[Rfam]
RNA: Bacterial large subunit ribosomal RNA, nucleotides 1309 to 1693
RNA sequence: GCAAAGGCAGGUGAGAAUCCUGCCCGCCGAAAACCUAAGGAUUCCUGGGGAAGGCUCGUCCGCCCAGGGUAAGUCGGGCCCUAAGCCGAGGCUGAAAAGCGUAGGCGAUGGACAAUCGGUGGAGAAUCCGAUACCACCUUAAAGCCGCUAUUAGGAUGGGGUGACACAGGAGGGCAAGCCAAGCGCGCGGUUGGAAAAGCGCGUCCAAGCCCGUAGGGCGAACUGCAGGCAAAACCGCAGUUCAUACAGCCUGAGAGGUUAUGGGGAGCGAAAAUAAGUAGCGAAGUGGCUGCACCCAAACUGUCAAGAAAAACCUCUAACGAGGCUAUAAGGUGCCCGUACCGCAAACCGACACAGGUAGGUGGGGUGAGAAUCCUAAGGCGCG
Numbered sequence: 001g002c003a004a005a006g007g008c009a010g011g012u013g014a015g016a017a018u019c020c021u022g023c024c025c026g027c028c029g030a031a032a033a034c035c036u037a038a039g040g041a042u043u044c045c046u047g048g049g050g051a052a053g054g055c056u057c058g059u060c061c062g063c064c065c066a067g068g069g070u071a072a073g074u075c076g077g078g079c080c081c082u083a084a085g086c087c088g089a090g091g092c093u094g095a096a097a098a099g100c101g102u103a104g105g106c107g108a109u110g111g112a113c114a115a116u117c118g119g120u121g122g123a124g125a126a127u128c129c130g131a132u133a134c135c136a137c138c139u140u141a142a143a144g145c146c147g148c149u150a151u152u153a154g155g156a157u158g159g160g161g162u163g164a165c166a167c168a169g170g171a172g173g174g175c176a177a178g179c180c181a182a183g184c185g186c187g188c189g190g191u192u193g194g195a196a197a198a199g200c201g202c203g204u205c206c207a208a209g210c211c212c213g214u215a216g217g218g219c220g221a222a223c224u225g226c227a228g229g230c231a232a233a234a235c236c237g238c239a240g241u242u243c244a245u246a247c248a249g250c251c252u253g254a255g256a257g258g259u260u261a262u263g264g265g266g267a268g269c270g271a272a273a274a275u276a277a278g279u280a281g282c283g284a285a286g287u288g289g290c291u292g293c294a295c296c297c298a299a300a301c302u303g304u305c306a307a308g309a310a311a312a313a314c315c316u317c318u319a320a321c322g323a324g325g326c327u328a329u330a331a332g333g334u335g336c337c338c339g340u341a342c343c344g345c346a347a348a349c350c351g352a353c354a355c356a357g358g359u360a361g362g363u364g365g366g367g368u369g370a371g372a373a374u375c376c377u378a379a380g381g382c383g384c385g
Stems, first nucleotide, its partner, number of pairs: 006024006025383004033363004039343002044068006053061002075339004080111002085106003089102001091100003115132005135335007143327003154321001158317005166304004172297003177291005183204006205264002209259003216252003220243007228236002268282002271279001349358002365377003